[Rfam]
RNA sequence: GGCAGCGAUUGCCGCGAGGCCUCUGCCCGACGGGGACCCUGACGCACUUCCCCAGCGCCAGGUUCGCCAAUCGGACAGGGACCUCGAGGCAUUCGCCUCGGAUC
Numbered sequence: 001g002g003c004a005g006c007g008a009u010u011g012c013c014g015c016g017a018g019g020c021c022u023c024u025g026c027c028c029g030a031c032g033g034g035g036a037c038c039c040u041g042a043c044g045c046a047c048u049u050c051c052c053c054a055g056c057g058c059c060a061g062g063u064u065c066g067c068c069a070a071u072c073g074g075a076c077a078g079g080g081a082c083c084u085c086g087a088g089g090c091a092u093u094c095g096c097c098u099c100g101g102a103u104c
Stems, first nucleotide, its partner, number of pairs: 010091004015086002018083002021080005027074004033068002035065002038062004043057003
The record is a 104-nucleotide RNA from Speluncibacter jeojiensis, which matches "mraW RNA" in Rfam. It scores 70 bits against the family's covariance model. Rfam classes the family as a cis-regulatory element. The family has 45 seed sequences and 851 matches in Rfam 15.1.